Shown here is a 61-nucleotide sequence from Caldanaerobacter subterraneus, a member of the family "Fluoride riboswitch aptamer (crcB RNA motif)". The organism belongs to Caldanaerobacter subterraneus subsp. tengcongensis, within Bacteria. The literature on the family includes a 2012 paper in Science by Baker et al., "Widespread genetic switches and toxicity resistance proteins for fluoride".

RNA sequence: AAUAUUUAAGGUGAUGAAGCCCACCUUAAUUGCCGUAAAGGCUGAUGGCUUCUACGAAGAU
Numbered sequence: 001a002a003u004a005u006u007u008a009a010g011g012u013g014a015u016g017a018a019g020c021c022c023a024c025c026u027u028a029a030u031u032g033c034c035g036u037a038a039a040g041g042c043u044g045a046u047g048g049c050u051u052c053u054a055c056g057a058a059g060a061u
Stems, first nucleotide, its partner, number of pairs: 010025004016052006032042003